[Rfam]
Rfam assigns this 67-nucleotide sequence from Bacillus sp. NRRL B-14911 to the family "Bacillaceae-1 RNA".

RNA sequence: CCUUAAGAAACGCAGACUAAGAACGCCACGUCCUGUGGCAACGUCUGCAUGGCUCCCAUGCUGGAGC
Numbered sequence: 001c002c003u004u005a006a007g008a009a010a011c012g013c014a015g016a017c018u019a020a021g022a023a024c025g026c027c028a029c030g031u032c033c034u035g036u037g038g039c040a041a042c043g044u045c046u047g048c049a050u051g052g053c054u055c056c057c058a059u060g061c062u063g064g065a066g067c
Base pairs, nucleotide, nucleotide: 012048013047014046015045016044017043025039026038027037028036029035054066056064057063
Dot-bracket structure: ...........((((((.......(((((.....)))))...)))))).....(.((.....)).).

It is one of the family's seed sequences. The family has 95 seed sequences and 5,721 matches in Rfam 15.1.